[Rfam]
Nucleotides: 129
Base pairs, nucleotide, nucleotide: 001098002097003096004095009058011057012056013055014054015053016052021050059085060084061083064081065080066079068076101118102117103116104115105114107112
Number, partner (000 for none) and nucleotide at each position: 001098a002097g003096u004095a005000a006000u007000g008000a009058g010000c011057g012056c013055c014054a015053g016052c017000g018000c019000g020000c021050a022000a023000c024000c025000a026000a027000a028000g029000a030000c031000u032000u033000g034000g035000u036000u037000g038000c039000a040000c041000u042000g043000c044000c045000c046000u047000g048000a049000c050021u051000u052016g053015c054014u055013g056012g057011c058009c059085g060084g061083c062000a063000a064081c065080c066079c067000u068076c069000g070000a071000u072000u073000c074000c075000g076068g077000u078000g079066g080065g081064g082000u083061g084060c085059c086000u087000c088000a089000g090000g091000u092000g093000a094000g095004u096003a097002c098001u099000c100000g101118g102117c103116a104115a105114c106000g107112u108000a109000u110000u111000g112107a113000g114105g115104u116103u117102g118101c119000a120000a121000g122000c123000g124000u125000g126000g127000a128000a129000u

Shown here is a 129-nucleotide sequence from Psychromicrobium lacuslunae, a member of the family "SAM (S-adenosyl methionine) riboswitch aptamer". Pairs were carried over by alignment from the consensus structure, which is taken from published work. A search with the family's covariance model found it, with a score of 64 bits. Gene Ontology terms of the family: S-adenosylmethionine metabolic process and regulation of gene expression. NCBI's taxonomy places the organism under Bacteria, Bacillati, Actinomycetota, Micrococcales, Psychromicrobium.